[Rfam]
RNA sequence: CUCUUAUCCUUGAGGCGGCGGAGGGACAGGCCCGAAGAAGCCCGGCAACCAUCAUCAAAACCAUUGAUGAACGGUGCUAACCUGCAAGACAUAAUGAUGUCUUGGCCGAUAAGAG
Numbered sequence: 001c002u003c004u005u006a007u008c009c010u011u012g013a014g015g016c017g018g019c020g021g022a023g024g025g026a027c028a029g030g031c032c033c034g035a036a037g038a039a040g041c042c043c044g045g046c047a048a049c050c051a052u053c054a055u056c057a058a059a060a061c062c063a064u065u066g067a068u069g070a071a072c073g074g075u076g077c078u079a080a081c082c083u084g085c086a087a088g089a090c091a092u093a094a095u096g097a098u099g100u101c102u103u104g105g106c107c108g109a110u111a112a113g114a115g
Base pairs, nucleotide, nucleotide: 001115002114003113004112005111006110007109008108014043017042018041019040023033024032025031027084028083029082030081044078045077046076047075049074050073052070053069054068055067056066057065085104086103087102088101089100090099
The record is a 115-nucleotide sequence from Evansella caseinilytica, which matches "SAM riboswitch aptamer (S box leader)" in Rfam.